[Rfam]
RNA: TPP riboswitch aptamer (THI element)
RNA sequence: UAACAUUGCUAGGGGCGCUAACGCUGAGAUCGGCAGGUAUUUGCCGAACCCUUAAACUUGAUCCGGAUAAUGCCGGCGAAAGGAAGCUUUGAUCUAUGAUU
Numbered sequence: 001u002a003a004c005a006u007u008g009c010u011a012g013g014g015g016c017g018c019u020a021a022c023g024c025u026g027a028g029a030u031c032g033g034c035a036g037g038u039a040u041u042u043g044c045c046g047a048a049c050c051c052u053u054a055a056a057c058u059u060g061a062u063c064c065g066g067a068u069a070a071u072g073c074c075g076g077c078g079a080a081a082g083g084a085a086g087c088u089u090u091g092a093u094c095u096a097u098g099a100u101u
Stems, first nucleotide, its partner, number of pairs: 008087003011052004016046001017024002032045004057082003063076004